A member of the RNA family "terC RNA" from Paracoccus aestuarii, 62 nucleotides long. The match comes from Rfam's covariance-model search (62 bits).

RNA sequence: CUGCGGGACCGGGCCCCUCUGGCGGCAGGAUCGACGAUCCGCCGCGAUGUCGGACCGCAUCG
Number, nucleotide and partner (000 for none) at each position: 001c000002u000003g000004c000005g000006g056007g055008a000009c053010c052011g051012g050013g000014c000015c000016c000017c000018u000019c000020u000021g000022g045023c044024g043025g042026c041027a000028g040029g039030a038031u000032c000033g000034a000035c000036g000037a000038u030039c029040c028041g026042c025043c024044g023045c022046g000047a000048u000049g000050u012051c011052g010053g009054a000055c007056c006057g000058c000059a000060u000061c000062g000
Pairs were carried over by alignment from the consensus structure, which is taken from published work.